[Rfam]
RNA sequence: GGGACUAUAGCUCAGCUGGUCAGAGCGUUACGUUGACAUCGUAAAGGUCUCUGGUUCGAAUCCAGAUAGUCCCA
Numbered sequence: 001g002g003g004a005c006u007a008u009a010g011c012u013c014a015g016c017u018g019g020u021c022a023g024a025g026c027g028u029u030a031c032g033u034u035g036a037c038a039u040c041g042u043a044a045a046g047g048u049c050u051c052u053g054g055u056u057c058g059a060a061u062c063c064a065g066a067u068a069g070u071c072c073c074a
Stems, first nucleotide, its partner, number of pairs: 001073007010026004028044005050066005
Shown here is a 74-nucleotide sequence from Dialister histaminiformans, a member of the family "tRNA".
A search with the family's covariance model found it, with a score of 73 bits.